[Rfam]
RNA sequence: UAAUCAAUUACAUAGCACACUCGUAUAAACUCAGUAAUAUGGUCUGAGAGUCUCUACCUGGUUCCCAUUGGAAGAACCGGACUACGGGUUGAAGUAUCGUUCGG
Numbered sequence: 001u002a003a004u005c006a007a008u009u010a011c012a013u014a015g016c017a018c019a020c021u022c023g024u025a026u027a028a029a030c031u032c033a034g035u036a037a038u039a040u041g042g043u044c045u046g047a048g049a050g051u052c053u054c055u056a057c058c059u060g061g062u063u064c065c066c067a068u069u070g071g072a073a074g075a076a077c078c079g080g081a082c083u084a085c086g087g088g089u090u091g092a093a094g095u096a097u098c099g100u101u102c103g104g
Stems, first nucleotide, its partner, number of pairs: 019089007030048005058080007

About this RNA: Shown here is a 104-nucleotide RNA from Bacillus salacetis, a member of the family "Purine riboswitch aptamer". NCBI's taxonomy places the organism under Bacteria, Bacillati, Bacillota, Bacilli, Bacillus. Pairs were carried over by alignment from the consensus structure, which is taken from published work. Rfam's curators write: Riboswitches are metabolite binding domains within certain messenger RNAs that serve as precision sensors for their corresponding targets.